[Rfam]
Small nucleolar RNA SNORA58: a 136-nucleotide RNA from Pandion haliaetus.
Rfam's curators write: ACA52 is a member of the H/ACA class of snoRNA that guide the sites of modification of uridines to pseudouridines.
A search with the family's covariance model found it, with a score of 78 bits.
Taxonomically the source falls in Pandion (Eukaryota, Gnathostomata, Sauria, Dinosauria).
Gene Ontology terms of the family: nucleolus and RNA processing.
The family's RNA type in Rfam is H/ACA-box small nucleolar RNA.
Nucleotides: 136
Base pairs, nucleotide, nucleotide: 003060004059005058006057007056008055016046017045018044019043020042021041023039024038073129074128075127076126078125081122082121083120093112094111095110096109
Number, partner (000 for none) and nucleotide at each position: 001000c002000u003060g004059c005058a006057u007056a008055c009000u010000a011000g012000u013000a014000g015000a016046c017045c018044c019043u020042u021041u022000c023039u024038g025000a026000c027000u028000g029000u030000g031000c032000u033000g034000u035000g036000g037000u038024c039023a040000c041021a042020a043019a044018g045017g046016g047000g048000g049000g050000a051000c052000a053000a054000c055008g056007u057006a058005u059004g060003c061000a062000a063000c064000a065000g066000c067000a068000a069000a070000g071000u072000g073129u074128a075127a076126g077000u078125u079000g080000c081122c082121a083120u084000c085000a086000g087000a088000c089000u090000u091000a092000u093112u094111c095110a096109g097000a098000c099000a100000g101000c102000u103000c104000u105000g106000u107000g108000a109096c110095u111094g112093a113000c114000u115000g116000g117000c118000c119000u120083g121082u122081g123000g124000u125078a126076c127075u128074u129073a130000c131000a132000c133000a134000g135000a136000a